[Rfam]
RNA sequence: CCCUUGGGGAGUAGCCGCCGCGAACUUACGCGGGGAUGCGUCAACAGGCUUGGAGGCUUCGACCUUCAUGGCGCAUCCAGUCCGGAUUCGGAUUGGCGAGACCAAGCGCGAGUGCCCGCCGGAACAAGAAACCGGGCGGCCGGGCAUAUCGCGCUUGCGUACUCGUUGCCGCCCGGACUU
Numbered sequence: 001c002c003c004u005u006g007g008g009g010a011g012u013a014g015c016c017g018c019c020g021c022g023a024a025c026u027u028a029c030g031c032g033g034g035g036a037u038g039c040g041u042c043a044a045c046a047g048g049c050u051u052g053g054a055g056g057c058u059u060c061g062a063c064c065u066u067c068a069u070g071g072c073g074c075a076u077c078c079a080g081u082c083c084g085g086a087u088u089c090g091g092a093u094u095g096g097c098g099a100g101a102c103c104a105a106g107c108g109c110g111a112g113u114g115c116c117c118g119c120c121g122g123a124a125c126a127a128g129a130a131a132c133c134g135g136g137c138g139g140c141c142g143g144g145c146a147u148a149u150c151g152c153g154c155u156u157g158c159g160u161a162c163u164c165g166u167u168g169c170c171g172c173c174c175g176g177a178c179u180u
Base pairs, nucleotide, nucleotide: 019032020031021030034078035077036076037075038074039073040072041071042070043069051068052067053066054065055064079179080178081177082176083175084174085173
Rfam assigns this 180-nucleotide RNA from Elstera litoralis to the family "Manganese Mn2+ riboswitch aptamer (yybP-ykoY)".
Rfam's curators write: This RNA was originally discovered in E. coli during a large scale screen and was named SraF. The family was later found to exist upstream of related families of protein genes in many bacteria, including the the yybP and ykoK genes in B. subtilis. The specific functions of these proteins are unknown, but this structured RNA element may be involved in their genetic regulation as a riboswitch.
The base pairs follow the family's consensus structure.